RNA sequence: AGACCCCACGCGGGAGAGUCCUCCGAGAUCCUUUGACAGGUUCGACGGGGGCGCCGAAGGAGCAAAUCCUCCCCGGAAUCUCUCAGGCACACGUACCGCGAGGACGAG
Numbered sequence: 001a002g003a004c005c006c007c008a009c010g011c012g013g014g015a016g017a018g019u020c021c022u023c024c025g026a027g028a029u030c031c032u033u034u035g036a037c038a039g040g041u042u043c044g045a046c047g048g049g050g051g052c053g054c055c056g057a058a059g060g061a062g063c064a065a066a067u068c069c070u071c072c073c074c075g076g077a078a079u080c081u082c083u084c085a086g087g088c089a090c091a092c093g094u095a096c097c098g099c100g101a102g103g104a105c106g107a108g
Stems, first nucleotide, its partner, number of pairs: 006103002009100005020051006053088003056084002060082003067075001